Annotation
Shown here is a 104-nucleotide RNA from Alkalicella caledoniensis, a member of the family "Glycine riboswitch aptamer". The organism belongs to Alkalicella, within Bacteria.
Nucleotides: 104
Base pairs, nucleotide, nucleotide: 007098008097009096010095011094012093013092020030021029022028032084033083034082035080036079039078040077041076045071
Number, partner (000 for none) and nucleotide at each position: 001000a002000u003000g004000a005000g006000c007098g008097u009096u010095u011094a012093g013092g014000g015000a016000g017000a018000g019000a020030c021029c022028u023000u024000u025000c026000a027000u028022a029021g030020g031000c032084g033083c034082c035080g036079a037000a038000g039078g040077a041076g042000c043000a044000a045071g046000u047000u048000g049000u050000u051000u052000u053000u054000c055000c056000u057000u058000g059000c060000a061000g062000a063000a064000a065000a066000c067000a068000a069000a070000u071045c072000g073000a074000a075000a076041c077040u078039c079036u080035c081000a082034g083033g084032c085000a086000a087000a088000a089000g090000u091000a092013c093012c094011u095010a096009a097008a098007u099000a100000g101000u102000g103000a104000c
Gene Ontology term of the family: glycine biosynthetic process. It scores 62 bits against the family's covariance model. This family represents the bacterial glycine riboswitch.